[Rfam]
RNA sequence: CCAGCUUCCUUUGCCAUAAUGGCUUAGAUCAAGUGUAGUAUCUGUUCUUUUCAGUUUAAUCUCUGAAACUGUCCGCACUGGACAAAAACGCGAUUAAUCCAAUUUUUACAACGCGAUCCUGGGACGCGCUGGGGGCUUGCCCUCACCGUCCUGGGAUAGGGUGUCUCUGGUAUCACACUGCUUCCAGAUGAUGCGAAAUGGGC
Numbered sequence: 001c002c003a004g005c006u007u008c009c010u011u012u013g014c015c016a017u018a019a020u021g022g023c024u025u026a027g028a029u030c031a032a033g034u035g036u037a038g039u040a041u042c043u044g045u046u047c048u049u050u051u052c053a054g055u056u057u058a059a060u061c062u063c064u065g066a067a068a069c070u071g072u073c074c075g076c077a078c079u080g081g082a083c084a085a086a087a088a089c090g091c092g093a094u095u096a097a098u099c100c101a102a103u104u105u106u107u108a109c110a111a112c113g114c115g116a117u118c119c120u121g122g123g124a125c126g127c128g129c130u131g132g133g134g135g136c137u138u139g140c141c142c143u144c145a146c147c148g149u150c151c152u153g154g155g156a157u158a159g160g161g162u163g164u165c166u167c168u169g170g171u172a173u174c175a176c177a178c179u180g181c182u183u184c185c186a187g188a189u190g191a192u193g194c195g196a197a198a199u200g201g202g203c
Stems, first nucleotide, its partner, number of pairs: 009027002013023003049068006070084006117156008132143004161194004166188005